[Rfam]
RNA sequence: GGGGGCAGAAAAGCAACUGGUGUGCUUCCGGGUCUUCAAAACCUGUGUGGGGCGCGGAAAGCGUCCCGGGUGGGUUCGAUUCCCACAUGUCCCC
Numbered sequence: 001g002g003g004g005g006c007a008g009a010a011a012a013g014c015a016a017c018u019g020g021u022g023u024g025c026u027u028c029c030g031g032g033u034c035u036u037c038a039a040a041a042c043c044u045g046u047g048u049g050g051g052g053c054g055c056g057g058a059a060a061g062c063g064u065c066c067c068g069g070g071u072g073g074g075u076u077c078g079a080u081u082c083c084c085a086c087a088u089g090u091c092c093c094c
Base pairs, nucleotide, nucleotide: 001094002093003092004091005090006089007088008086011027012026013025014024015023017022029045030044031043032042033041048068049067050066051065052064071085072084073083074082
RNA: Selenocysteine transfer RNA
Organism: Lachnoclostridium sp. An169